[Rfam]
RNA: c-di-GMP-I riboswitch aptamer
Organism: Paenisporosarcina cavernae
RNA sequence: UCCGUAAAAAGGCAAACUUAUCGAAAGAUAAGGACGCAAAGCCACAGGUCUAAAGCAUAUUAAACGCCAUGACGGUUGGGUUAUCGUA
Numbered sequence: 001u002c003c004g005u006a007a008a009a010a011g012g013c014a015a016a017c018u019u020a021u022c023g024a025a026a027g028a029u030a031a032g033g034a035c036g037c038a039a040a041g042c043c044a045c046a047g048g049u050c051u052a053a054a055g056c057a058u059a060u061u062a063a064a065c066g067c068c069a070u071g072a073c074g075g076u077u078g079g080g081u082u083a084u085c086g087u088a
Stems, first nucleotide, its partner, number of pairs: 012037002017032006040082004045078003048073003055067002058064001